[Rfam]
RNA: Small nucleolar RNA R21
Organism: Solanum tuberosum
RNA sequence: CAUCCCUGUGAUGAGUUCUUUCUAAAUUUAACGUUAAAAGUAGACUGAUCUUUAAAGGAAGAAAAAUACUCAAUUCUGAGGGAUG
Dot-bracket structure: ((((((.........................................................................))))))